[Rfam]
RNA: Bacterial large subunit ribosomal RNA, nucleotides 668 to 897
Organism: Knoellia aerolata
RNA sequence: GAGUUAGUGCUCAGUGGCGAGGUUAACCCGUGUGGGGAAGCCGUAGCGAAAGCGAGUCCGAAUAGGGCGAAUGAGUCGCUGGGUCUAGACCCGAAGCGGAGUGAUCUACCCAUGGCCAGGUUGAAGCGACGGUAAGACGUCGUGGAGGACCGAACCCACUUAGGUUGAAAACUGAGGGGAUGAGCUGUGGGUAGGGGUGAAAGGCCAAUCAAACUCCGUGAUAGCUGGUU
Numbered sequence: 001g002a003g004u005u006a007g008u009g010c011u012c013a014g015u016g017g018c019g020a021g022g023u024u025a026a027c028c029c030g031u032g033u034g035g036g037g038a039a040g041c042c043g044u045a046g047c048g049a050a051a052g053c054g055a056g057u058c059c060g061a062a063u064a065g066g067g068c069g070a071a072u073g074a075g076u077c078g079c080u081g082g083g084u085c086u087a088g089a090c091c092c093g094a095a096g097c098g099g100a101g102u103g104a105u106c107u108a109c110c111c112a113u114g115g116c117c118a119g120g121u122u123g124a125a126g127c128g129a130c131g132g133u134a135a136g137a138c139g140u141c142g143u144g145g146a147g148g149a150c151c152g153a154a155c156c157c158a159c160u161u162a163g164g165u166u167g168a169a170a171a172c173u174g175a176g177g178g179g180a181u182g183a184g185c186u187g188u189g190g191g192u193a194g195g196g197g198u199g200a201a202a203g204g205c206c207a208a209u210c211a212a213a214c215u216c217c218g219u220g221a222u223a224g225c226u227g228g229u230u
Stems, first nucleotide, its partner, number of pairs: 005087003009084010021042004027036003046053002056068004090228002093225001097218006106194011117182001119151004126143006155179003159176005196206003